[Rfam]
This 101-nucleotide sequence from Cohnella sp. AR92 belongs to the Rfam family "Purine riboswitch aptamer".
Pairs were carried over by alignment from the consensus structure, which is taken from published work.

RNA sequence: AUGAACGGAAUCGAAGUUUUUCGUAUAAUCCCGGGAAUAGGCUCGGGAGUUUCUACGAGGUCACCGCAAAUGAUCCGGCUACGAAAAGCAGAGAGCGAUAU
Numbered sequence: 001a002u003g004a005a006c007g008g009a010a011u012c013g014a015a016g017u018u019u020u021u022c023g024u025a026u027a028a029u030c031c032c033g034g035g036a037a038u039a040g041g042c043u044c045g046g047g048a049g050u051u052u053c054u055a056c057g058a059g060g061u062c063a064c065c066g067c068a069a070a071u072g073a074u075c076c077g078g079c080u081a082c083g084a085a086a087a088g089c090a091g092a093g094a095g096c097g098a099u100a101u
Base pairs, nucleotide, nucleotide: 018087019086020085021084022083023082024081025080029048030047031046032045033044034043035042059075060074061073062072063071
Notes
A search with the family's covariance model found it, with a score of 67 bits.